[Rfam]
RNA sequence: UCGGGUCUUUUUGCGGUCUGGGCUUGCUGUCCCUCCCCCGCCAGGAAGCCCUUACCCCAAAAAGCAUCCG
Numbered sequence: 001u002c003g004g005g006u007c008u009u010u011u012u013g014c015g016g017u018c019u020g021g022g023c024u025u026g027c028u029g030u031c032c033c034u035c036c037c038c039c040g041c042c043a044g045g046a047a048g049c050c051c052u053u054a055c056c057c058c059a060a061a062a063a064g065c066a067u068c069c070g
Stems, first nucleotide, its partner, number of pairs: 007064007015056003020051004025046001027044002
RNA: mir-129 microRNA precursor family
Organism: Oenanthe oenanthe